[Rfam]
RNA sequence: AUAAUGAUACUUCUGCUAUGACAGCAGGCCGCUUGAUGGGGGCUGGUGAAAUUCCAAUGA
Numbered sequence: 001a002u003a004a005u006g007a008u009a010c011u012u013c014u015g016c017u018a019u020g021a022c023a024g025c026a027g028g029c030c031g032c033u034u035g036a037u038g039g040g041g042g043c044u045g046g047u048g049a050a051a052u053u054c055c056a057a058u059g060a
Stems, first nucleotide, its partner, number of pairs: 012057001013027004028043003032039002044056003
A member of the RNA family "pemK RNA", 60 nucleotides long. It is annotated as a cis-regulatory element. Rfam's curators put it in the seed alignment.